[Rfam]
RNA: tRNA
Organism: Camelus dromedarius
RNA sequence: GAGGGCAUAGCUCAGUGGUAGAGUGUGUGCCUGGCAUGCAGGAGGUCCUGGGUUCAAUCCCCAGUGCCUCUA
Numbered sequence: 001g002a003g004g005g006c007a008u009a010g011c012u013c014a015g016u017g018g019u020a021g022a023g024u025g026u027g028u029g030c031c032u033g034g035c036a037u038g039c040a041g042g043a044g045g046u047c048c049u050g051g052g053u054u055c056a057a058u059c060c061c062c063a064g065u066g067c068c069u070c071u072a
Stems, first nucleotide, its partner, number of pairs: 001071001003069005010024004026042001028040003048064005